A member of the RNA family "Bacteroidales small SRP" from Alistipes communis, 107 nucleotides long. It is annotated as a non-coding RNA gene. The family is grouped with related families in Rfam's "SRP clan". Lineage of the source: Bacteria > Pseudomonadati > Bacteroidota > Bacteroidia > Alistipes. Gene Ontology terms of the family: signal recognition particle, plasma membrane targeting and SRP-dependent cotranslational protein targeting to membrane, signal sequence recognition. The match comes from Rfam's covariance-model search (112 bits).
RNA sequence: UGCACUCGGGUAAGUCUUAUACGACCAGCUCCUGUAGAAUCCCCCAGGCAAGGAAUUGAGCAAGGGUAUACGGUUGUAGCGGUGCGAUAUAAGUAGCUUACCCAUUU
Dot-bracket structure: .......((((((((.(((((((((........................................................)).)).)))))...))))))))....
Numbered sequence: 001u002g003c004a005c006u007c008g009g010g011u012a013a014g015u016c017u018u019a020u021a022c023g024a025c026c027a028g029c030u031c032c033u034g035u036a037g038a039a040u041c042c043c044c045c046a047g048g049c050a051a052g053g054a055a056u057u058g059a060g061c062a063a064g065g066g067u068a069u070a071c072g073g074u075u076g077u078a079g080c081g082g083u084g085c086g087a088u089a090u091a092a093g094u095a096g097c098u099u100a101c102c103c104a105u106u107u
Stems, first nucleotide, its partner, number of pairs: 008103008017092005022086002024083002